[Rfam]
RNA sequence: GGAUCGAGCGGCAGCCGGUGGGACGGCGGCCAGGAAUGGAUCUCGUGUCGGCUCUUCUCGGGUGAGGUCCGCGCCGUGGCCCCGGCGGCGCGCACC
Numbered sequence: 001g002g003a004u005c006g007a008g009c010g011g012c013a014g015c016c017g018g019u020g021g022g023a024c025g026g027c028g029g030c031c032a033g034g035a036a037u038g039g040a041u042c043u044c045g046u047g048u049c050g051g052c053u054c055u056u057c058u059c060g061g062g063u064g065a066g067g068u069c070c071g072c073g074c075c076g077u078g079g080c081c082c083c084g085g086c087g088g089c090g091c092g093c094a095c096c
Base pairs, nucleotide, nucleotide: 001043002042003041004040005039010031011030012029014027015026016025017024066096067095068094070092072090073089074088075087076086